Fluoride riboswitch aptamer (crcB RNA motif): a 73-nucleotide RNA sequence from Methylobacterium sp. GXS13. Gene Ontology terms of the family: response to fluoride and positive regulation of gene expression. Taxonomically the source falls in Methylobacterium (Bacteria, Pseudomonadota, Alphaproteobacteria, Hyphomicrobiales). The match comes from Rfam's covariance-model search (53 bits).
RNA sequence: GGCCGGGAUGGGGAUGGAGCUCCCCGAUAACCGCCCGGCAUCGCCAUGCUGGGCUGAUGGCUCCUACCGAACG
Numbered sequence: 001g002g003c004c005g006g007g008a009u010g011g012g013g014a015u016g017g018a019g020c021u022c023c024c025c026g027a028u029a030a031c032c033g034c035c036c037g038g039c040a041u042c043g044c045c046a047u048g049c050u051g052g053g054c055u056g057a058u059g060g061c062u063c064c065u066a067c068c069g070a071a072c073g
Stems, first nucleotide, its partner, number of pairs: 010025004016064006033054009